The record is a 60-nucleotide RNA sequence from Peromyscus maniculatus, which matches "Small nucleolar RNA Z39" in Rfam. Rfam links the family to the GO terms RNA processing and nucleolus. The family's RNA type in Rfam is C/D-box small nucleolar RNA.
RNA sequence: GUACAUGUGAUGAAGCAAAUCAGUAUGAAAAACAUGAUACUGUAAACGCUUUCUGAUGUA
Number, nucleotide and partner (000 for none) at each position: 001g000002u060003a059004c058005a057006u000007g000008u000009g000010a000011u000012g052013a051014a050015g049016c048017a000018a000019a000020u000021c042022a041023g040024u039025a038026u037027g000028a000029a000030a000031a000032a000033c000034a000035u000036g000037a026038u025039a024040c023041u022042g021043u000044a000045a000046a000047c000048g016049c015050u014051u013052u012053c000054u000055g000056a000057u005058g004059u003060a002